The family of this 121-nucleotide sequence from Synergistes jonesii is "Molybdenum/Tungsten riboswitch aptamer (Moco RNA motif)".
The family's consensus secondary structure is taken from published work.
RNA sequence: GCGUCAUAACGUCCCUGAAACUGUUCUUCCUACGGCCUUCCGGCUAUGGAAGGCGGUCGUUAGGGCGGCCUUGGAAACGGGGCCGUCUCCCGUGAUGGAAAGGGGAUAGCGAAAGUGCGUG
Number, nucleotide and partner (000 for none) at each position: 001g000002c000003g000004u114005c000006a000007u000008a000009a000010c000011g107012u106013c105014c104015c103016u102017g000018a000019a000020a057021c056022u055023g054024u000025u053026c052027u051028u050029c049030c048031u000032a000033c000034g045035g044036c043037c042038u000039u000040c000041c000042g037043g036044c035045u034046a000047u000048g030049g029050a028051a027052g026053g025054c023055g022056g021057u020058c000059g000060u000061u000062a000063g088064g087065g086066c085067g084068g083069c082070c081071u080072u079073g078074g000075a000076a000077a000078c073079g072080g071081g070082g069083c068084c067085g066086u065087c064088u063089c098090c097091c000092g000093u000094g000095a000096u000097g090098g089099a000100a000101a000102g016103g015104g014105g013106a012107u011108a000109g000110c000111g000112a000113a000114a004115g000116u000117g000118c000119g000120u000121g000
The match comes from Rfam's covariance-model search (56 bits).